The record is a 243-nucleotide sequence from Trifolium pratense, which matches "MIR2655 microRNA precursor family" in Rfam.
Taxonomically the source falls in Trifolium (Eukaryota, Mesangiospermae, Hologalegina, Trifolieae).
The family's consensus secondary structure was predicted with RNAalifold.
Nucleotides: 243
Base pairs, nucleotide, nucleotide: 002241003240004239005238006237007236008235023220024219025218027216028215029214031212032211033210034209035208036207037206038205039204040203041202042201043200045198046197047196
Number, partner (000 for none) and nucleotide at each position: 001000c002241c003240c004239u005238u006237a007236u008235c009000u010000u011000u012000u013000a014000a015000a016000a017000g018000u019000u020000u021000c022000a023220a024219g025218u026000u027216g028215g029214u030000c031212c032211c033210u034209u035208a036207u037206c038205u039204u040203u041202u042201c043200u044000g045198c046197a047196g048000g049000u050000u051000u052000c053000a054000a055000u056000u057000u058000g059000g060000u061000c062000c063000a064000u065000u066000c067000c068000g069000u070000c071000a072000a073000a074000u075000u076000u077000u078000u079000c080000a081000c082000u083000a084000u085000u086000a087000c088000c089000g090000u091000u092000a093000a094000a095000u096000u097000u098000g099000g100000a101000c102000a103000c104000c105000u106000g107000a108000c109000a110000a111000a112000c113000a114000g115000a116000g117000a118000a119000a120000a121000c122000a123000c124000c125000a126000u127000u128000g129000a130000a131000a132000a133000g134000a135000u136000g137000a138000c139000a140000c141000u142000g143000u144000a145000g146000a147000a148000a149000u150000u151000u152000a153000a154000c155000g156000g157000u158000a159000a160000u161000a162000g163000u164000g165000a166000a167000a168000a169000a170000u171000u172000u173000g174000g175000c176000a177000g178000a179000a180000g181000g182000g183000a184000c185000c186000a187000a188000c189000u190000u191000g192000a193000a194000a195000c196047c197046u198045g199000c200043a201042g202041a203040a204039a205038a206037g207036a208035u209034a210033a211032g212031g213000g214029a215028c216027c217000a218025a219024u220023u221000u222000g223000a224000a225000a226000c227000a228000u229000u230000u231000a232000a233000a234000a235008g236007a237006u238005a239004a240003g241002g242000g243000a